[Rfam]
RNA sequence: UUACACUAGUGUUAACUGCCGAAGACAGCAGGUGCCGUAUGGCAUAAGUUGCAAACGCCUGCCGAGGAAACAUACCAUAUUAAAUGUGUAAGUUUACGCCUCUUUGUCUUCAUUGAUAAAGAGGUUUUUUAUUGUCGGC
Numbered sequence: 001u002u003a004c005a006c007u008a009g010u011g012u013u014a015a016c017u018g019c020c021g022a023a024g025a026c027a028g029c030a031g032g033u034g035c036c037g038u039a040u041g042g043c044a045u046a047a048g049u050u051g052c053a054a055a056c057g058c059c060u061g062c063c064g065a066g067g068a069a070a071c072a073u074a075c076c077a078u079a080u081u082a083a084a085u086g087u088g089u090a091a092g093u094u095u096a097c098g099c100c101u102c103u104u105u106g107u108c109u110u111c112a113u114u115g116a117u118a119a120a121g122a123g124g125u126u127u128u129u130u131a132u133u134g135u136c137g138g139c
Base pairs, nucleotide, nucleotide: 028062029061030060031059032058033057034043035042036041099124100123101122102121103120104119105118106117107116108115